[Rfam]
RNA sequence: GACCAACGGGUCGCGUACGGAGCCCGUCCGAGUCCGCCCAGGCGGCCGGAUGUAUGGGCUCGCGACGACUCGAUGGGAUGGGGAGUGCCCACCAUG
Dot-bracket structure: .............(((...(((((((((.....((((....))))...)))....)))))))))................................
The record is a 96-nucleotide RNA, which matches "malK-III RNA" in Rfam. The family's consensus secondary structure is taken from published work.